Small nucleolar RNA SNORD19: a 76-nucleotide RNA sequence from Pardalotus punctatus. Its family is annotated with nucleolus and RNA processing in the Gene Ontology. On this family, see Huttenhofer et al., EMBO J 2001: "RNomics: an experimental approach that identifies 201 candidates for novel, small, non-messenger RNAs in mouse". It is annotated as a C/D-box small nucleolar RNA.
[Rfam]
RNA sequence: GAAAAAUGAUGAUAUUCUUUCUGUGUCCUGUAAUUACAGUGAAGACCUCAGAUCCAACUCUGAUUUCACUCUAAUU
Dot-bracket structure: ((((...........................................................)))).........
The family is grouped with related families in Rfam's "SNORD19 clan".